[Rfam]
RNA sequence: UUGCAUAUAAAUCUUCGAGUCUGUAGGUCUAAAGCCAAGGCUAUGACUGCUGACCGUUAGGUACUUCGGGAAACUGGAGUACCUUCCAUUGCGAAAAGAAGAAAUUAAUACCGGUAA
Number, nucleotide and partner (000 for none) at each position: 001u000002u000003g111004c000005a000006u108007a000008u000009a000010a000011a000012u102013c101014u100015u099016c098017g000018a000019g054020u053021c052022u000023g050024u049025a048026g000027g047028u046029c045030u000031a000032a000033a042034g041035c040036c000037a000038a000039g000040g035041c034042u033043a000044u000045g029046a028047c027048u025049g024050c023051u000052g021053a020054c019055c000056g000057u000058u000059a084060g083061g082062u081063a080064c079065u078066u077067c076068g075069g074070g000071a000072a000073a000074c069075u068076g067077g066078a065079g064080u063081a062082c061083c060084u059085u094086c093087c000088a000089u000090u000091g000092c000093g086094a085095a000096a000097a000098g016099a015100a014101g013102a012103a000104a000105u000106u000107a000108a006109u000110a000111c003112c000113g000114g000115u000116a000117a000
The record is a 117-nucleotide sequence from Sporomusa malonica, which matches "Molybdenum/Tungsten riboswitch aptamer (Moco RNA motif)" in Rfam.
On this family, see Regulski et al., Mol Microbiol 2008: "in molybdenum cofactor and tungsten cofactor metabolism".
Pairs were carried over by alignment from the consensus structure, which is taken from published work.
A search with the family's covariance model found it, with a score of 62 bits.